Shown here is a 131-nucleotide RNA sequence, a member of the family "Small nucleolar RNA SNORA24".
By type it is an H/ACA-box small nucleolar RNA.
ACA24 is a member of the H/ACA class of snoRNA that guide the sites of modification of uridines to pseudouridines.
The base pairs follow the family's consensus structure, which was predicted with RNAfold.
RNA sequence: CUCCAUGUAUCUUUGGGACCUGUCAAGUGUGGCAGUCUCCCUUCCUUGCCAUGGAAGAGCAUAUUCUUGUUUACCAGCAAAGCUGUCACCAUUUAAUUGGUAUCAGAUUCUGACUUGCACAAGUAACAUUC
Dot-bracket structure: .((((((.......((((.(((((......)))))..))))........))))))............((((.....((((..(((..((((......))))..)))........))))......))))...
Numbered sequence: 001c002u003c004c005a006u007g008u009a010u011c012u013u014u015g016g017g018a019c020c021u022g023u024c025a026a027g028u029g030u031g032g033c034a035g036u037c038u039c040c041c042u043u044c045c046u047u048g049c050c051a052u053g054g055a056a057g058a059g060c061a062u063a064u065u066c067u068u069g070u071u072u073a074c075c076a077g078c079a080a081a082g083c084u085g086u087c088a089c090c091a092u093u094u095a096a097u098u099g100g101u102a103u104c105a106g107a108u109u110c111u112g113a114c115u116u117g118c119a120c121a122a123g124u125a126a127c128a129u130u131c
Stems, first nucleotide, its partner, number of pairs: 002055006015041004020035005068128004077118004083106003088101004